[Rfam]
RNA sequence: CCUGGGCGACAAACACAUCUGCCCACUUCCCGGUCAUGGCACCACCCCGAUUACCUCCGCUUCCGGUGACAU
Numbered sequence: 001c002c003u004g005g006g007c008g009a010c011a012a013a014c015a016c017a018u019c020u021g022c023c024c025a026c027u028u029c030c031c032g033g034u035c036a037u038g039g040c041a042c043c044a045c046c047c048c049g050a051u052u053a054c055c056u057c058c059g060c061u062u063c064c065g066g067u068g069a070c071a072u
Stems, first nucleotide, its partner, number of pairs: 008070001018039002020036002023033002051069005
This 72-nucleotide RNA from Pseudomonas sp. MRSN 12121 belongs to the Rfam family "Pseudomonas sRNA P10". The source organism's lineage runs through Bacteria, Pseudomonadota, Pseudomonadales, Pseudomonadaceae and Pseudomonas. The family has 8 seed sequences and 62 matches in Rfam 15.1. The literature on the family includes a 2006 paper in Nucleic Acids Res by Livny et al., "Identification of 17 Pseudomonas aeruginosa sRNAs and prediction of sRNA-encoding genes in 10 diverse pathogens using the bioinformatic tool sRNAPredict2". A search with the family's covariance model found it, with a score of 42 bits. The family's consensus secondary structure was predicted with WAR. The family's RNA type in Rfam is small RNA.